[Rfam]
RNA sequence: CUCUUCCCCACUCUCUCCCAACCCUUGUACCAGUGUCAACAGUAAACUCCACUGGUACAGAGGAUGGAAGGGGGGGUGGUAUAGAG
Numbered sequence: 001c002u003c004u005u006c007c008c009c010a011c012u013c014u015c016u017c018c019c020a021a022c023c024c025u026u027g028u029a030c031c032a033g034u035g036u037c038a039a040c041a042g043u044a045a046a047c048u049c050c051a052c053u054g055g056u057a058c059a060g061a062g063g064a065u066g067g068a069a070g071g072g073g074g075g076g077u078g079g080u081a082u083a084g085a086g
Base pairs, nucleotide, nucleotide: 010077011076012075014071015070016068017067018066023060026059027058028057029056030055031054032053
RNA: mir-150 microRNA precursor family
Organism: Salvator merianae